[Rfam]
This 128-nucleotide sequence from Staphylococcus aureus belongs to the Rfam family "Staphylococcus sRNA sau-59". It is annotated as a small RNA.
RNA sequence: UCGUCUUCUUGAAUAUCGAUAAUAUCAUUAACUUUCUUUUUGAAUUUAUCUCUUUUAGCUCUAAUUUUAUCUAAAUCGACACUUCUUCUUGUCUUACGUGCAUAUUCUGUAGUCUUAUCUUGGAGUUG
Numbered sequence: 001u002c003g004u005c006u007u008c009u010u011g012a013a014u015a016u017c018g019a020u021a022a023u024a025u026c027a028u029u030a031a032c033u034u035u036c037u038u039u040u041u042g043a044a045u046u047u048a049u050c051u052c053u054u055u056u057a058g059c060u061c062u063a064a065u066u067u068u069a070u071c072u073a074a075a076u077c078g079a080c081a082c083u084u085c086u087u088c089u090u091g092u093c094u095u096a097c098g099u100g101c102a103u104a105u106u107c108u109g110u111a112g113u114c115u116u117a118u119c120u121u122g123g124a125g126u127u128g
Stems, first nucleotide, its partner, number of pairs: 018050005025043003030038002056128009078093004099111004